[Rfam]
RNA sequence: AAUUUGAAAAGGCAAAUCUGUGGAAACGCAGAGACGCAAAGCUAUAGGGGCUAAGCCGUUUGGUAUGCCAGCCAGCUGUCAGG
Numbered sequence: 001a002a003u004u005u006g007a008a009a010a011g012g013c014a015a016a017u018c019u020g021u022g023g024a025a026a027c028g029c030a031g032a033g034a035c036g037c038a039a040a041g042c043u044a045u046a047g048g049g050g051c052u053a054a055g056c057c058g059u060u061u062g063g064u065a066u067g068c069c070a071g072c073c074a075g076c077u078g079u080c081a082g083g
Stems, first nucleotide, its partner, number of pairs: 012037002017032006040077004047073002049069003056063002
Rfam assigns this 83-nucleotide sequence from Domibacillus iocasae to the family "c-di-GMP-I riboswitch aptamer". Lineage of the source: Bacteria > Bacillati > Bacilli > Bacillaceae > Domibacillus. Pairs were carried over by alignment from the consensus structure, which is taken from published work. Rfam's curators write: GEMM was predicted in a large-scale screen for bacterial structured RNA regulatory elements.